[Rfam]
RNA sequence: ACUGCAAGGUAAGCGCCAGAGCUUGAUUUCGCGCGUGAAGCUGAUUCGGAAUGCUGUCAUAGGCAAAUUGUGCGCAACCUCAGGGUUGACGUAAGGUCCGAACGGAGUGAGCGGCAAAGGCAAGCUGACGAGGUGGAGGUGUUCGAAUUGUUCGGCGGGGGCCUCCCGGUGAUUCAUCACAUCGUAACUGUAAGGACAAAAGGAAUGGGCGACCGUUCUGCCAAACCUUUCAGGCUGAUGACC
Numbered sequence: 001a002c003u004g005c006a007a008g009g010u011a012a013g014c015g016c017c018a019g020a021g022c023u024u025g026a027u028u029u030c031g032c033g034c035g036u037g038a039a040g041c042u043g044a045u046u047c048g049g050a051a052u053g054c055u056g057u058c059a060u061a062g063g064c065a066a067a068u069u070g071u072g073c074g075c076a077a078c079c080u081c082a083g084g085g086u087u088g089a090c091g092u093a094a095g096g097u098c099c100g101a102a103c104g105g106a107g108u109g110a111g112c113g114g115c116a117a118a119g120g121c122a123a124g125c126u127g128a129c130g131a132g133g134u135g136g137a138g139g140u141g142u143u144c145g146a147a148u149u150g151u152u153c154g155g156c157g158g159g160g161g162c163c164u165c166c167c168g169g170u171g172a173u174u175c176a177u178c179a180c181a182u183c184g185u186a187a188c189u190g191u192a193a194g195g196a197c198a199a200a201a202g203g204a205a206u207g208g209g210c211g212a213c214c215g216u217u218c219u220g221c222c223a224a225a226c227c228u229u230u231c232a233g234g235c236u237g238a239u240g241a242c243c
Stems, first nucleotide, its partner, number of pairs: 020126006027119001029117001135166005143155004167184005188233003192229003202219007